The record is a 102-nucleotide sequence from Bacillus sp. 165, which matches "TPP riboswitch aptamer (THI element)" in Rfam. On this family, see Rodionov et al., J Biol Chem 2002: "Comparative genomics of thiamin biosynthesis in procaryotes. New genes and regulatory mechanisms". A search with the family's covariance model found it, with a score of 72 bits. The source organism's lineage runs through Bacteria, Bacillati, Bacillota, Bacilli and Bacillus. Pairs were carried over by alignment from the consensus structure, which is taken from published work. Rfam 15.1 lists 16,130 matches to the family in 8,693 species.
[Rfam]
RNA sequence: GUAAUCCACAAGGGGAGCCAAUAUGGCUGAGAGUGAAUGUUGUAUUCAGACCCUUCGAACCUGUUAGUUAAUGCUAGCGUAGGGAUGUGGCUUAGAACGGUC
Numbered sequence: 001g002u003a004a005u006c007c008a009c010a011a012g013g014g015g016a017g018c019c020a021a022u023a024u025g026g027c028u029g030a031g032a033g034u035g036a037a038u039g040u041u042g043u044a045u046u047c048a049g050a051c052c053c054u055u056c057g058a059a060c061c062u063g064u065u066a067g068u069u070a071a072u073g074c075u076a077g078c079g080u081a082g083g084g085a086u087g088u089g090g091c092u093u094a095g096a097a098c099g100g101u102c
Base pairs, nucleotide, nucleotide: 006090007089008088009087010086011054012053013052014051017027018026019025020024034048035047036046037045038044060083061082062081063080064077065076066075067074